[Rfam]
Rfam assigns this 253-nucleotide sequence from Biomphalaria glabrata to the family "RNase MRP".
The family's consensus secondary structure is taken from published work.
Rfam 15.1 lists 3,510 matches to the family in 2,315 species.
Rfam describes the family as follows. RNase MRP is an enzymatically active ribonucleoprotein with two distinct roles in eukaryotes. In mitochondria it plays a direct role in the initiation of mitochondrial DNA replication.
Its family is annotated with rRNA processing, ribonuclease MRP complex and ribonuclease MRP activity in the Gene Ontology.

RNA sequence: GAGAACUUCAGGAACCUACUCUAGGGGCCACAAACUGAAGACUUGUUCUUCAACUGCCCAUGGAAAAGUCCCCAGACCAGAGGUAGAGAUACCAAUCCAGUAAUGGAGUCACUAGCCCUACAUAAGGCCACUAGCCAAAGCUGGGAGGUCCCUAGGACCGAGCUGGUGGUGUAGGCUGUCUAUAGUCAAAGCUACAGUCAUGUAGGUGGUGCCUUCAUGGCUCUCACUCAAUGGGGCUUAGCAAAGAAGUUCU
Numbered sequence: 001g002a003g004a005a006c007u008u009c010a011g012g013a014a015c016c017u018a019c020u021c022u023a024g025g026g027g028c029c030a031c032a033a034a035c036u037g038a039a040g041a042c043u044u045g046u047u048c049u050u051c052a053a054c055u056g057c058c059c060a061u062g063g064a065a066a067a068g069u070c071c072c073c074a075g076a077c078c079a080g081a082g083g084u085a086g087a088g089a090u091a092c093c094a095a096u097c098c099a100g101u102a103a104u105g106g107a108g109u110c111a112c113u114a115g116c117c118c119u120a121c122a123u124a125a126g127g128c129c130a131c132u133a134g135c136c137a138a139a140g141c142u143g144g145g146a147g148g149u150c151c152c153u154a155g156g157a158c159c160g161a162g163c164u165g166g167u168g169g170u171g172u173a174g175g176c177u178g179u180c181u182a183u184a185g186u187c188a189a190a191g192c193u194a195c196a197g198u199c200a201u202g203u204a205g206g207u208g209g210u211g212c213c214u215u216c217a218u219g220g221c222u223c224u225c226a227c228u229c230a231a232u233g234g235g236g237c238u239u240a241g242c243a244a245a246g247a248a249g250u251u252c253u
Base pairs, nucleotide, nucleotide: 002253003252004251005250006249007248008247009246014207015206016205017204018203019202022062023061025059026058027057028056037051038050039049040048041047066239067238068237070236071235072234073233082093083092084091085090094109096107097106098105099104111179112178117175118174119173120172121171122170127167128166129165139164140163141162148158149157150156151155209223211221212220213219